[Rfam]
RNA sequence: AAAAAUAGUAAAAAGGGGCUUACCUCUCAGUACGAAAGGAUCAGAUGGGCAUGUUUCAAUAGUGUACCAAUUGUUGGAUGUGCUUAUUAUUAAUAUUUUAAGAUUACUCUGGCAUAGUUGGGUAGCCACAAACAUAAAGGAUAAUUGCUGAAAGUAUAUUAAGCAAGAAACCUACCCCUGGAUACUAUCAUUCAAUAAAAUUUAUAUUUUAUUGUUAGAUAAGAAAUAGAACAUUUCUAUUUUAGGAUAUAAGUAUAAUUGUUGUGAAACAUUUAGCUUAAUAUUACUAAUUUGUCUAUUG
Number, nucleotide and partner (000 for none) at each position: 001a000002a000003a000004a000005a191006u190007a000008g188009u187010a186011a000012a000013a000014a000015g178016g177017g176018g175019c000020u000021u049022a000023c047024c000025u045026c044027u043028c000029a000030g000031u000032a000033c000034g000035a000036a000037a000038g000039g000040a000041u000042c000043a027044g026045a025046u000047g023048g000049g021050c000051a135052u134053g133054u132055u131056u130057c000058a000059a000060u128061a000062g126063u000064g000065u000066a000067c121068c120069a119070a118071u117072u114073g113074u112075u111076g110077g109078a000079u000080g000081u000082g000083c000084u000085u000086a000087u000088u000089a000090u000091u000092a000093a000094u000095a000096u000097u000098u000099u000100a000101a000102g000103a000104u000105u000106a000107c000108u000109c077110u076111g075112g074113c073114a072115u000116a000117g071118u070119u069120g068121g067122g000123u000124a000125g000126c062127c000128a060129c000130a056131a055132a054133c053134a052135u051136a000137a000138a173139g172140g171141a000142u000143a000144a000145u166146u165147g164148c163149u162150g000151a000152a000153a000154g000155u000156a000157u000158a000159u000160u000161a000162a149163g148164c147165a146166a145167g000168a000169a000170a000171c140172c139173u138174a000175c018176c017177c016178c015179u000180g000181g000182a000183u000184a000185c000186u010187a009188u008189c000190a006191u005192u000193c000194a213195a212196u211197a210198a209199a208200a207201u000202u000203u000204a000205u000206a000207u200208u199209u198210u197211a196212u195213u194214g000215u298216u000217a000218g296219a295220u294221a293222a238223g237224a236225a235226a234227u000228a000229g000230a000231a000232c000233a000234u226235u225236u224237c223238u222239a000240u000241u000242u000243u289244a288245g287246g285247a284248u283249a282250u281251a279252a278253g277254u000255a000256u000257a000258a000259u000260u271261g270262u269263u268264g000265u000266g000267a000268a263269a262270c261271a260272u000273u000274u000275a000276g000277c253278u252279u251280a000281a250282u249283a248284u247285u246286a000287c245288u244289a243290a000291u000292u000293u221294g220295u219296c218297u000298a215299u000300u000301g000

Background
Bacterial large subunit ribosomal RNA: a 301-nucleotide part of an RNA. Its family is annotated with ribosome and structural constituent of ribosome in the Gene Ontology. It scores 1166 bits against the family's covariance model.